[Rfam]
RNA sequence: AACUGUCAUAACGGCCGCAGCAGAUGCGCUCACGUCGCGGCCUGCUCUGAUUUGAACCAUCGGCAGAUUCUGCU
Number, nucleotide and partner (000 for none) at each position: 001a000002a000003c000004u000005g000006u000007c000008a000009u000010a000011a043012c000013g042014g041015c040016c039017g000018c000019a074020g073021c072022a071023g070024a069025u000026g038027c037028g036029c000030u000031c000032a000033c000034g000035u000036c028037g027038c026039g016040g015041c014042c013043u011044g000045c000046u000047c063048u062049g061050a060051u059052u000053u000054g000055a000056a000057c000058c000059a051060u050061c049062g048063g047064c000065a000066g000067a000068u000069u024070c023071u022072g021073c020074u019
Source information
A member of the RNA family "Mammalian CPEB3 ribozyme" from Alligator sinensis, 74 nucleotides long. NCBI's taxonomy places the organism under Eukaryota, Gnathostomata, Sarcopterygii, Alligatoridae, Alligator. Pairs were carried over by alignment from the consensus structure, which is taken from published work.